MIR1886 microRNA precursor family: a 52-nucleotide RNA sequence from Solanum lycopersicum.
Rfam 15.1 lists 1,053 matches to the family in 6 species.
[Rfam]
RNA sequence: UGAGAUGGAAUCAGCGUUUAGAUAUGUGAUUUUACGCUAAUUCUAUCUCAUG
Numbered sequence: 001u002g003a004g005a006u007g008g009a010a011u012c013a014g015c016g017u018u019u020a021g022a023u024a025u026g027u028g029a030u031u032u033u034a035c036g037c038u039a040a041u042u043c044u045a046u047c048u049c050a051u052g
Base pairs, nucleotide, nucleotide: 001050002049003048004047005046006045007044008043009042010041011040013038014037015036016035017034018029019028020027